The family of this 134-nucleotide sequence from Chiloscyllium punctatum is "Small nucleolar RNA SNORA31".
ACA31 (SNORA31) belongs to the H/ACA class of snoRNAs which are thought to guide the sites of modification of uridines to pseudouridines.
It scores 42 bits against the family's covariance model.
By type it is an H/ACA-box small nucleolar RNA.
The source organism's lineage runs through Eukaryota, Deuterostomia, Craniata, Selachii and Chiloscyllium.
On this family, see Huttenhofer et al., EMBO J 2001: "RNomics: an experimental approach that identifies 201 candidates for novel, small, non-messenger RNAs in mouse".
Rfam links the family to the GO terms RNA processing and nucleolus.
[Rfam]
RNA sequence: UAGCAUCUGUUGACAGACCUGAAGCACGUCACUGUGGCUUUCUGGUUCCUUAAUGUUAAGAUGCAAGAUCAAUUUCUUUGCGCUUUCUGCCUGCUCUCCUCGUAGCAGUUUGGAUUGAAUAGAGGAAAACACAA
Numbered sequence: 001u002a003g004c005a006u007c008u009g010u011u012g013a014c015a016g017a018c019c020u021g022a023a024g025c026a027c028g029u030c031a032c033u034g035u036g037g038c039u040u041u042c043u044g045g046u047u048c049c050u051u052a053a054u055g056u057u058a059a060g061a062u063g064c065a066a067g068a069u070c071a072a073u074u075u076c077u078u079u080g081c082g083c084u085u086u087c088u089g090c091c092u093g094c095u096c097u098c099c100u101c102g103u104a105g106c107a108g109u110u111u112g113g114a115u116u117g118a119a120u121a122g123a124g125g126a127a128a129a130c131a132c133a134a
Stems, first nucleotide, its partner, number of pairs: 003064006011055002016047004022039001025036004075126005083117001086114004091108005